[Rfam]
RNA sequence: AACCACACUAUCGAUCAAUGGAUUCACCCGUAAGAUGACGUGGUCGUUCCAUCUAGGAUGAAGACGUGGCAUCCUAUUAAUUUCGUGCGAUGGCCGGUAAUAGGAUGACAUGUCCUCGUCCUAGAUGAAACAAUCACGUCAUCUCGCGGGUGAAUCCAUUUAUUGAUAGUGUGUUU
Numbered sequence: 001a002a003c004c005a006c007a008c009u010a011u012c013g014a015u016c017a018a019u020g021g022a023u024u025c026a027c028c029c030g031u032a033a034g035a036u037g038a039c040g041u042g043g044u045c046g047u048u049c050c051a052u053c054u055a056g057g058a059u060g061a062a063g064a065c066g067u068g069g070c071a072u073c074c075u076a077u078u079a080a081u082u083u084c085g086u087g088c089g090a091u092g093g094c095c096g097g098u099a100a101u102a103g104g105a106u107g108a109c110a111u112g113u114c115c116u117c118g119u120c121c122u123a124g125a126u127g128a129a130a131c132a133a134u135c136a137c138g139u140c141a142u143c144u145c146g147c148g149g150g151u152g153a154a155u156c157c158a159u160u161u162a163u164u165g166a167u168a169g170u171g172u173g174u175u176u
Stems, first nucleotide, its partner, number of pairs: 001176002004173004009168007017160003021156008030147002033144001035142005041136004046131003051126002054123002057120002063114003070107010086097001